[Rfam]
RNA sequence: UCGCGUGCACUGGGAUCGGUGAAAGUCCGAGCCGGCGGUUAAAGUCCGCGACCCGACCACAGCCAGUGGCCGGUUGACCAGGUGAAACUCCUGGACCGACGGUGAGAGUCCGGAUGGGAAGUUGCACGCUG
Numbered sequence: 001u002c003g004c005g006u007g008c009a010c011u012g013g014g015a016u017c018g019g020u021g022a023a024a025g026u027c028c029g030a031g032c033c034g035g036c037g038g039u040u041a042a043a044g045u046c047c048g049c050g051a052c053c054c055g056a057c058c059a060c061a062g063c064c065a066g067u068g069g070c071c072g073g074u075u076g077a078c079c080a081g082g083u084g085a086a087a088c089u090c091c092u093g094g095a096c097c098g099a100c101g102g103u104g105a106g107a108g109u110c111c112g113g114a115u116g117g118g119a120a121g122u123u124g125c126a127c128g129c130u131g
Base pairs, nucleotide, nucleotide: 003129004128005127006126007125008124009123010121017029018028019027031109032108033098034097035049036048037047038046044096045095053073054072078094079093080092081091082090100112101111102110
Dot-bracket structure: ..((((((((......(((.......))).[[((((((.....[[))))...((.................))....(((((.......)))))]])).(((.....]])))........).)))))))..